SAM (S-adenosyl methionine) riboswitch aptamer: a 113-nucleotide RNA from Mycolicibacterium sediminis. Taxonomically the source falls in Mycobacterium (subgen. Mycolicibacterium) (Bacteria, Bacillati, Actinomycetota, Mycobacteriaceae). It scores 66 bits against the family's covariance model.

Nucleotides: 113
Base pairs, nucleotide, nucleotide: 001077002076003075004074009040012038013037014036015035016034017033022031023030041064042063043062046060047059048058080102081101082100084097085096086095087094088093
Number, partner (000 for none) and nucleotide at each position: 001077c002076u003075u004074c005000a006000c007000a008000a009040g010000a011000u012038g013037c014036c015035g016034u017033c018000g019000c020000c021000a022031a023030g024000c025000u026000c027000c028000g029000a030023c031022u032000g033017g034016a035015c036014g037013g038012c039000a040009c041064g042063c043062c044000a045000a046060c047059c048058c049000c050000a051000c052000g053000a054000u055000u056000g057000c058048g059047g060046g061000u062043g063042g064041c065000u066000c067000g068000g069000a070000u071000g072000a073000c074004g075003a076002a077001g078000c079000g080102g081101c082100c083000a084097g085096c086095a087094u088093u089000a090000g091000u092000c093088g094087g095086u096085g097084c098000c099000c100082g101081g102080c103000a104000a105000g106000a107000g108000c109000g110000c111000c112000u113000c